[Rfam]
RNA sequence: CUCGUUGUGCGACCAACGAUAGCCUAGGAAGACAUGCGUCACUGGUAACGGUGGGGUGUGAAGCUCUUCCAACAAUGUAGCCCCCGUAUGGGUGCGUCUUCGCCGUGAGGCGGAGCGCAGAUGCUCGGAGCAGUACCGGGUUGAGGCG
Numbered sequence: 001c002u003c004g005u006u007g008u009g010c011g012a013c014c015a016a017c018g019a020u021a022g023c024c025u026a027g028g029a030a031g032a033c034a035u036g037c038g039u040c041a042c043u044g045g046u047a048a049c050g051g052u053g054g055g056g057u058g059u060g061a062a063g064c065u066c067u068u069c070c071a072a073c074a075a076u077g078u079a080g081c082c083c084c085c086g087u088a089u090g091g092g093u094g095c096g097u098c099u100u101c102g103c104c105g106u107g108a109g110g111c112g113g114a115g116c117g118c119a120g121a122u123g124c125u126c127g128g129a130g131c132a133g134u135a136c137c138g139g140g141u142u143g144a145g146g147c148g
Stems, first nucleotide, its partner, number of pairs: 002019006028069005033060005039054006083092003093119004103110002123141006
This 148-nucleotide sequence from Pseudomonas sp. UK4 belongs to the Rfam family "Group II catalytic intron D1-D4-7". Group II introns are found in rRNA, tRNA and mRNA of organelles in fungi, plants and protists, and also in mRNA in bacteria.